This 141-nucleotide sequence from Capsicum annuum belongs to the Rfam family "MIR7993 microRNA precursor family". It scores 101 bits against the family's covariance model. The organism belongs to Capsicum, within Eukaryota. Rfam 15.1 lists 59 matches to the family in 6 species.
RNA sequence: UUAGGUUAACCAUAUAAGAUAUGUUAUUUCCUCUAAUAAUACGCAUCAACCUCAAGUAGAAAAUGCUUGGAGUUUUAUGUCUCAUUGAGGCGAAUGCAUAUAAUUAAAGAAAAUAACAUAUUUUAUGUGGUUAAUUUAACU
Numbered sequence: 001u002u003a004g005g006u007u008a009a010c011c012a013u014a015u016a017a018g019a020u021a022u023g024u025u026a027u028u029u030c031c032u033c034u035a036a037u038a039a040u041a042c043g044c045a046u047c048a049a050c051c052u053c054a055a056g057u058a059g060a061a062a063a064u065g066c067u068u069g070g071a072g073u074u075u076u077a078u079g080u081c082u083c084a085u086u087g088a089g090g091c092g093a094a095u096g097c098a099u100a101u102a103a104u105u106a107a108a109g110a111a112a113a114u115a116a117c118a119u120a121u122u123u124u125a126u127g128u129g130g131u132u133a134a135u136u137u138a139a140c141u
Base pairs, nucleotide, nucleotide: 001139002138003137004136005135006134007133008132009131010130011129012128013127014126015125016124017123018122019121020120021119022118023117024116025115028112029111031109032108034106035105036104037103039101040100041099043097044096045095046094050090051089052088053087054086